[Rfam]
RNA sequence: AAAUGUAGUAGACUAUAAGUAUACAGUGAACAUGAACGUAUACUAAGUACACUACGUUUUC
Numbered sequence: 001a002a003a004u005g006u007a008g009u010a011g012a013c014u015a016u017a018a019g020u021a022u023a024c025a026g027u028g029a030a031c032a033u034g035a036a037c038g039u040a041u042a043c044u045a046a047g048u049a050c051a052c053u054a055c056g057u058u059u060u061c
Stems, first nucleotide, its partner, number of pairs: 001059009012048003018044007
RNA: mir-728 microRNA precursor family